This 82-nucleotide RNA sequence from Rousettus aegyptiacus belongs to the Rfam family "ctgf/hcs24 CAESAR". The match comes from Rfam's covariance-model search (90 bits). A reference for the family is Kubota et al. (1999), "Involvement of cis-acting repressive element(s) in the 3'-untranslated region of human connective tissue growth factor gene", FEBS Lett. From the family's description: The 3' UTR of human connective tissue growth factor/hypertrophic chondrocyte specific 24 (ctgf/hcs24) mRNA has been shown to repress ctgf gene expression. Reference identified a minimal RNA element, predicted to form a stable secondary structure, which acts as a post-transcriptional cis-acting element of structure-anchored repression (CAESAR), probably through direct interactions with as yet unknown nuclear factors. The organism belongs to Rousettus, within Eukaryota. Gene Ontology term of the family: negative regulation of gene expression.

[Rfam]
RNA sequence: AUGGAGACAUGGCAUAAAGCCAAAGAGAGUGAGAGACAUUAACUCAUUUGGCCGUAACUUGAAUUGAUUCACAUCUCAUUUU
Number, nucleotide and partner (000 for none) at each position: 001a000002u000003g000004g077005a076006g075007a074008c000009a000010u022011g021012g020013c019014a000015u000016a000017a000018a000019g013020c012021c011022a010023a000024a000025g000026a000027g000028a000029g072030u071031g070032a069033g000034a000035g000036a000037c000038a000039u000040u000041a000042a000043c000044u000045c000046a000047u000048u000049u000050g000051g000052c000053c000054g000055u000056a000057a000058c000059u000060u000061g000062a000063a000064u000065u000066g000067a000068u000069u032070c031071a030072c029073a000074u007075c006076u005077c004078a000079u000080u000081u000082u000